This 97-nucleotide RNA sequence from Zea mays belongs to the Rfam family "Small nucleolar RNA snoR31/Z110/Z27". Taxonomically the source falls in Zea (Eukaryota, Euphyllophyta, Liliopsida, Tripsacinae). For this family Rfam cites "Identification of 66 box C/D snoRNAs in Arabidopsis thaliana: extensive gene duplications generated multiple isoforms predicting new ribosomal RNA 2'-O-methylation sites" (Barneche et al., J Mol Biol, 2001). About the family: This family contains several related snoRNAs including R31, Z27 and Z110. The family's RNA type in Rfam is C/D-box small nucleolar RNA.
RNA sequence: AGUAUCAGAUGAUGAAACCUCGAAACAAUCUUAGGACACCUUCUGACACAGUGUUUCAUCACUGUGAGUGAGAAGUACCUUCUUUUCUGAUGAUACA
Dot-bracket structure: .((((((....................................((...))........................................)))))).
Numbered sequence: 001a002g003u004a005u006c007a008g009a010u011g012a013u014g015a016a017a018c019c020u021c022g023a024a025a026c027a028a029u030c031u032u033a034g035g036a037c038a039c040c041u042u043c044u045g046a047c048a049c050a051g052u053g054u055u056u057c058a059u060c061a062c063u064g065u066g067a068g069u070g071a072g073a074a075g076u077a078c079c080u081u082c083u084u085u086u087c088u089g090a091u092g093a094u095a096c097a
Stems, first nucleotide, its partner, number of pairs: 002096006044050002